Shown here is a 78-nucleotide RNA sequence from Agrilus planipennis, a member of the family "mir-2796 microRNA precursor family". Rfam 15.1 lists 119 matches to the family in 116 species. The organism belongs to Agrilus, within Eukaryota. Gene Ontology terms of the family: RISC complex and miRNA-mediated post-transcriptional gene silencing.
RNA sequence: UAUUGGGGCAGGGGUUUCUUUCGGCCUCCAGCAGAUUUUAAGGGGUUGUAGGCCGGCGGAAACUACUUGCCACCGUAU
Numbered sequence: 001u002a003u004u005g006g007g008g009c010a011g012g013g014g015u016u017u018c019u020u021u022c023g024g025c026c027u028c029c030a031g032c033a034g035a036u037u038u039u040a041a042g043g044g045g046u047u048g049u050a051g052g053c054c055g056g057c058g059g060a061a062a063c064u065a066c067u068u069g070c071c072a073c074c075g076u077a078u
Stems, first nucleotide, its partner, number of pairs: 005074002007071001009069004013064007021056007029048003